[Rfam]
RNA: Eukaryotic large subunit ribosomal RNA, nucleotides 1 to 423
RNA sequence: UGAUCUCAGAUCAGAUAGAAGUACUCACUGAACUUAAGCAUAUUAAUAAACAGAGAAAAAGAAAUCAACAGAGAUUGCCUCAGUAACAGUAAGUAAAGCAGCAAAAACUCAAAUUUGAAAUCUGACUCCAUGCAGAGCUCAAGUUGUAAUUUAGAGAGAAUACUUCAGAUGCAGUUACAGUAUAAGUUUCUUGAAACAGAAUAUUAUAGAGGGUGAGAAUCCUGUCUUUAGCUACUAGACUGUGCUCAUACAAAGUUCCUUCAACAAGUCAAGUUGUUUGAGAAUGCAGCUCUAAGUGGGUGGUAAAUUUCAUCUAAAACUAAAUAUUGGCUGGAGAUCAAUAAUGCACAAGUAGAGUGAUUGAAAGAUUAAAAGCAUCUUGAAAAGAGAGUUAAAUAGCAUGUGAAAUUAUUAAAAGAGAAG
Numbered sequence: 001u002g003a004u005c006u007c008a009g010a011u012c013a014g015a016u017a018g019a020a021g022u023a024c025u026c027a028c029u030g031a032a033c034u035u036a037a038g039c040a041u042a043u044u045a046a047u048a049a050a051c052a053g054a055g056a057a058a059a060a061g062a063a064a065u066c067a068a069c070a071g072a073g074a075u076u077g078c079c080u081c082a083g084u085a086a087c088a089g090u091a092a093g094u095a096a097a098g099c100a101g102c103a104a105a106a107a108c109u110c111a112a113a114u115u116u117g118a119a120a121u122c123u124g125a126c127u128c129c130a131u132g133c134a135g136a137g138c139u140c141a142a143g144u145u146g147u148a149a150u151u152u153a154g155a156g157a158g159a160a161u162a163c164u165u166c167a168g169a170u171g172c173a174g175u176u177a178c179a180g181u182a183u184a185a186g187u188u189u190c191u192u193g194a195a196a197c198a199g200a201a202u203a204u205u206a207u208a209g210a211g212g213g214u215g216a217g218a219a220u221c222c223u224g225u226c227u228u229u230a231g232c233u234a235c236u237a238g239a240c241u242g243u244g245c246u247c248a249u250a251c252a253a254a255g256u257u258c259c260u261u262c263a264a265c266a267a268g269u270c271a272a273g274u275u276g277u278u279u280g281a282g283a284a285u286g287c288a289g290c291u292c293u294a295a296g297u298g299g300g301u302g303g304u305a306a307a308u309u310u311c312a313u314c315u316a317a318a319a320c321u322a323a324a325u326a327u328u329g330g331c332u333g334g335a336g337a338u339c340a341a342u343a344a345u346g347c348a349c350a351a352g353u354a355g356a357g358u359g360a361u362u363g364a365a366a367g368a369u370u371a372a373a374a375g376c377a378u379c380u381u382g383a384a385a386a387g388a389g390a391g392u393u394a395a396a397u398a399g400c401a402u403g404u405g406a407a408a409u410u411a412u413u414a415a416a417a418g419a420g421a422a423g
Stems, first nucleotide, its partner, number of pairs: 024055001025053001029049001035042002065072002076103003086094002106321001109318001112151004118145002121142001124139001126137002156262002158259001160257001163255003168246001170244005176237001179236004186202001188201004205209001212222002272291006298315005355362002378389001380387002